[Rfam]
RNA sequence: UUUUAGCCCCGAUGGUAGUGUAAAGCUUUUUUAAGGAAAAUUUUUAGUUUUGUUGCCAAACAAAAGCGACCAACGGAAGCUCUUUGUGUGGCUUACAAAACUUAAUUUUUCUUAAAAAACUUGUAACGGACAGCGGGAAUAGCU
Numbered sequence: 001u002u003u004u005a006g007c008c009c010c011g012a013u014g015g016u017a018g019u020g021u022a023a024a025g026c027u028u029u030u031u032u033a034a035g036g037a038a039a040a041u042u043u044u045u046a047g048u049u050u051u052g053u054u055g056c057c058a059a060a061c062a063a064a065a066g067c068g069a070c071c072a073a074c075g076g077a078a079g080c081u082c083u084u085u086g087u088g089u090g091g092c093u094u095a096c097a098a099a100a101c102u103u104a105a106u107u108u109u110u111c112u113u114a115a116a117a118a119a120c121u122u123g124u125a126a127c128g129g130a131c132a133g134c135g136g137g138a139a140u141a142g143c144u
Base pairs, nucleotide, nucleotide: 009136010135011134013132014131018127019126023122024121025120029117030116031115032114033113034112035111036110037109038108039107040106041105042104
RNA: Flavo-1 RNA
Organism: Flavobacterium piscinae